[Rfam]
RNA sequence: CAUCGUCCACUCGGACGAUCACCAAUGAUCUUUCAGUCUGUGAGGAUCGCCUUCGGGUGACUGAAUCACUUUUCCAGAGCCUGUAAGGAAAAGGGCGUGAUUAAGAAGCGCGGUAAAUCUGCCAUCCUUUGAGAGCAGAUGUCACCAGGUAGUUUAAA
Numbered sequence: 001c002a003u004c005g006u007c008c009a010c011u012c013g014g015a016c017g018a019u020c021a022c023c024a025a026u027g028a029u030c031u032u033u034c035a036g037u038c039u040g041u042g043a044g045g046a047u048c049g050c051c052u053u054c055g056g057g058u059g060a061c062u063g064a065a066u067c068a069c070u071u072u073u074c075c076a077g078a079g080c081c082u083g084u085a086a087g088g089a090a091a092a093g094g095g096c097g098u099g100a101u102u103a104a105g106a107a108g109c110g111c112g113g114u115a116a117a118u119c120u121g122c123c124a125u126c127c128u129u130u131g132a133g134a135g136c137a138g139a140u141g142u143c144a145c146c147a148g149g150u151a152g153u154u155u156a157a158a
Stems, first nucleotide, its partner, number of pairs: 002019006027048005033064006049058003070092005079114003095111003118139005124155001128152002141150003
RNA: STAXI RNA